[Rfam]
The family of this 131-nucleotide RNA sequence from Tupaia belangeri is "Small nucleolar RNA SNORA42/SNORA80 family". For this family Rfam cites "A computational screen for mammalian pseudouridylation guide H/ACA RNAs" (Schattner et al., RNA, 2006). The match comes from Rfam's covariance-model search (102 bits). NCBI's taxonomy places the organism under Eukaryota, Eutheria, Euarchontoglires, Tupaia, Tupaia belangeri.
Nucleotides: 131
Base pairs, nucleotide, nucleotide: 001054002053003051005049006048013046014045015044016043017042018041020039021038022037023035024034067124068123069122070121071120078114079113083109084108085105087103088102089101090100
Number, partner (000 for none) and nucleotide at each position: 001054g002053u003051g004000a005049g006048u007000u008000u009000a010000g011000a012000u013046u014045u015044a016043u017042g018041g019000c020039a021038g022037g023035c024034u025000c026000a027000c028000c029000c030000c031000c032000c033000u034024g035023g036000g037022u038021c039020u040000c041018u042017c043016a044015u045014a046013g047000u048006g049005c050000c051003c052000c053002a054001u055000g056000c057000c058000a059000g060000a061000g062000c063000a064000a065000a066000c067124u068123g069122g070121c071120c072000c073000u074000g075000a076000a077000c078114c079113a080000u081000u082000g083109c084108c085105c086000u087103g088102u089101c090100u091000u092000u093000u094000a095000a096000c097000u098000g099000u100090g101089g102088a103087c104000u105085g106000c107000u108084g109083g110000c111000a112000c113079u114078g115000a116000a117000g118000c119000a120071g121070g122069u123068u124067g125000c126000a127000u128000g129000g130000a131000g
About the family: The members of this family belong to the H/ACA class of snoRNAs that guide the sites of modification of uridines to pseudouridines. Human ACA42 (SNORA42) was cloned from HeLa cells by immunoprecipitation with anti-GAR1 antibody.